[Rfam]
RNA sequence: UGAGAGAACGAUGCUGAAGGAACUAGGCAAAUUGCAUCUGUAACUUUGGGAGAAGGAUGACCUAUUAAUGGGCAACCAUUUAUAGGUGGCACAAACUAGGGGGUAGCGACUGUUUAUUUAAAACACAGGGCUCUGCAAAGUCAAUAGACGAAGUAUAGGGUCUGACGCCUGCCCAGUGCUGGAAGAUUAAGAGGAGGGGUGCAAGCUCUGAAUUGAAGUCCCAGUGAACGGCGGCCGUAACUAUGACGGUCCUAAGGUAGCGAAAUUCCUUGUCGGGUAAGUUCCGACCCGCACGAAUGGCGUAACGAUUUCCCCACUGUCUCCAGUAUCGACUCA
Numbered sequence: 001u002g003a004g005a006g007a008a009c010g011a012u013g014c015u016g017a018a019g020g021a022a023c024u025a026g027g028c029a030a031a032u033u034g035c036a037u038c039u040g041u042a043a044c045u046u047u048g049g050g051a052g053a054a055g056g057a058u059g060a061c062c063u064a065u066u067a068a069u070g071g072g073c074a075a076c077c078a079u080u081u082a083u084a085g086g087u088g089g090c091a092c093a094a095a096c097u098a099g100g101g102g103g104u105a106g107c108g109a110c111u112g113u114u115u116a117u118u119u120a121a122a123a124c125a126c127a128g129g130g131c132u133c134u135g136c137a138a139a140g141u142c143a144a145u146a147g148a149c150g151a152a153g154u155a156u157a158g159g160g161u162c163u164g165a166c167g168c169c170u171g172c173c174c175a176g177u178g179c180u181g182g183a184a185g186a187u188u189a190a191g192a193g194g195a196g197g198g199g200u201g202c203a204a205g206c207u208c209u210g211a212a213u214u215g216a217a218g219u220c221c222c223a224g225u226g227a228a229c230g231g232c233g234g235c236c237g238u239a240a241c242u243a244u245g246a247c248g249g250u251c252c253u254a255a256g257g258u259a260g261c262g263a264a265a266u267u268c269c270u271u272g273u274c275g276g277g278u279a280a281g282u283u284c285c286g287a288c289c290c291g292c293a294c295g296a297a298u299g300g301c302g303u304a305a306c307g308a309u310u311u312c313c314c315c316a317c318u319g320u321c322u323c324c325a326g327u328a329u330c331g332a333c334u335c336a
Stems, first nucleotide, its partner, number of pairs: 001336004009331008018322003035059005044049001060087006067080005088092001100315004105310002107307002111125003128163008136153001140149003166302004171232003176229002178225005185220003191214002196209005233251006252256001262289001272288006
The record is a 336-nucleotide part of an RNA, which matches "Bacterial large subunit ribosomal RNA" in Rfam. It scores 2711 bits against the family's covariance model. Pairs were carried over by alignment from the consensus structure, which is taken from published work.